Rfam assigns this 105-nucleotide sequence from Anoxybacillus sp. B7M1 to the family "Guanidine-I riboswitch aptamer". About the family: This family represents a conserved RNA structure found upstream of the ykkC and yxkD genes in Bacillus subtilis and related genes in other bacteria. The function of this family is unclear although it has been suggested that it may function to switch on efflux pumps and detoxification systems in response to harmful environmental molecules. The match comes from Rfam's covariance-model search (94 bits). The pairing is the family consensus, mapped onto this sequence.
[Rfam]
RNA sequence: UAAAAAGUUUUCUAGGGUUCCGUGGCUGUUUAGCAGCCAGACUGUGACCGAGAGAAAACGCACAAGCCGCGCUUGUGUACACGGAGGGAUAAAAGCCCGGGAGGA
Numbered sequence: 001u002a003a004a005a006a007g008u009u010u011u012c013u014a015g016g017g018u019u020c021c022g023u024g025g026c027u028g029u030u031u032a033g034c035a036g037c038c039a040g041a042c043u044g045u046g047a048c049c050g051a052g053a054g055a056a057a058a059c060g061c062a063c064a065a066g067c068c069g070c071g072c073u074u075g076u077g078u079a080c081a082c083g084g085a086g087g088g089a090u091a092a093a094a095g096c097c098c099g100g101g102a103g104g105a
Stems, first nucleotide, its partner, number of pairs: 007059006015049002020046001021044001022042001023039006060078008080100001082103001086098003